Shown here is a 139-nucleotide RNA sequence from Dipodomys ordii, a member of the family "Small nucleolar RNA SNORA51". Rfam links the family to the GO terms nucleolus and RNA processing. ACA51 is a member of the H/ACA class of snoRNA that guide the sites of modification of uridines to pseudouridines. The family has 9 seed sequences and 2,121 matches in Rfam 15.1. Rfam classes the family as an H/ACA-box small nucleolar RNA.
RNA sequence: CACUUUCUAACAGAACAUGACCGCAAUAAGGCUGUGUUCUUAUACUUACUGCAUAGAAAAAGGAGGCAGAGUAAACCUACCCAAUAUACACCUCAGCCCAGGCCUGUGCCUAGUCUGUUUUGUGAAUGGGGAGACAAGG
Numbered sequence: 001c002a003c004u005u006u007c008u009a010a011c012a013g014a015a016c017a018u019g020a021c022c023g024c025a026a027u028a029a030g031g032c033u034g035u036g037u038u039c040u041u042a043u044a045c046u047u048a049c050u051g052c053a054u055a056g057a058a059a060a061a062g063g064a065g066g067c068a069g070a071g072u073a074a075a076c077c078u079a080c081c082c083a084a085u086a087u088a089c090a091c092c093u094c095a096g097c098c099c100a101g102g103c104c105u106g107u108g109c110c111u112a113g114u115c116u117g118u119u120u121u122g123u124g125a126a127u128g129g130g131g132a133g134a135c136a137a138g139g
Base pairs, nucleotide, nucleotide: 003066004065005064006063007062008061029050030049034045035044036043037042080131081130082129084127085126094117095116096115098113100111101110102109103108